[Rfam]
RNA sequence: UGACGUCGGUUCCUCUUCCUGUCUGAAGUCCAGCAGGAGGAUUUUACGACGUCGCAGAAAGUUUGGGGUCUUUUCACCCAGAAAGCUUCAGGCUGCAGCCAGAUUCAAAAAGCUUCCUGGUUUUGCGGGACCCAACAAAC
Numbered sequence: 001u002g003a004c005g006u007c008g009g010u011u012c013c014u015c016u017u018c019c020u021g022u023c024u025g026a027a028g029u030c031c032a033g034c035a036g037g038a039g040g041a042u043u044u045u046a047c048g049a050c051g052u053c054g055c056a057g058a059a060a061g062u063u064u065g066g067g068g069u070c071u072u073u074u075c076a077c078c079c080a081g082a083a084a085g086c087u088u089c090a091g092g093c094u095g096c097a098g099c100c101a102g103a104u105u106c107a108a109a110a111a112g113c114u115u116c117c118u119g120g121u122u123u124u125g126c127g128g129g130a131c132c133c134a135a136c137a138a139a140c
Base pairs, nucleotide, nucleotide: 001054002053003052004051005050006049007048008047014041015040016039017038018037020035021034022033066132067131069129070128071127078120079119080118081117083115084114085113086112087111

Small nucleolar RNA SNORA79: a 140-nucleotide RNA from Austrofundulus limnaeus. ACA65 (SNORA79) is a member of the H/ACA class of snoRNAs that guide the sites of modification of uridines to pseudouridines. This snoRNA was identified by computational screening and its expression in mouse experimentally verified by Northern blot and primer extension analysis. Its family is annotated with nucleolus and RNA processing in the Gene Ontology. Rfam 15.1 lists 944 matches to the family in 375 species. By type it is an H/ACA-box small nucleolar RNA. Taxonomically the source falls in Austrofundulus (Eukaryota, Chordata, Euteleostomi, Aplocheiloidei).